[Rfam]
Shown here is a 72-nucleotide RNA sequence from Papaver somniferum, a member of the family "Small nucleolar RNA Z105". By type it is a C/D-box small nucleolar RNA.
Nucleotides: 072
Stems, first nucleotide, its partner, number of pairs: 006067004028047001031042001
Number, partner (000 for none) and nucleotide at each position: 001000g002000u003000g004000u005000u006067g007066u008065g009064a010000u011000g012000a013000u014000g015000a016000a017000a018000g019000u020000a021000u022000u023000u024000u025000g026000u027000c028047c029000g030000a031042c032000u033000a034000a035000a036000u037000u038000a039000u040000a041000u042031g043000a044000a045000u046000g047028g048000a049000u050000a051000a052000a053000u054000a055000a056000c057000c058000u059000c060000c061000u062000a063000c064009u065008c066007a067006u068000u069000c070000u071000g072000a
The match comes from Rfam's covariance-model search (62 bits).